[Rfam]
RNA sequence: GUGUGAUCCGGAUUCGUCCGCACACGUAUCGACACAAACGGUUGGGUGCCUCGCGCAAGUCGUGGGGUCACUGUUUGGGAUGCGUGGAGGCUCAAC
Numbered sequence: 001g002u003g004u005g006a007u008c009c010g011g012a013u014u015c016g017u018c019c020g021c022a023c024a025c026g027u028a029u030c031g032a033c034a035c036a037a038a039c040g041g042u043u044g045g046g047u048g049c050c051u052c053g054c055g056c057a058a059g060u061c062g063u064g065g066g067g068u069c070a071c072u073g074u075u076u077g078g079g080a081u082g083c084g085u086g087g088a089g090g091c092u093c094a095a096c
Stems, first nucleotide, its partner, number of pairs: 023086008035077008048068005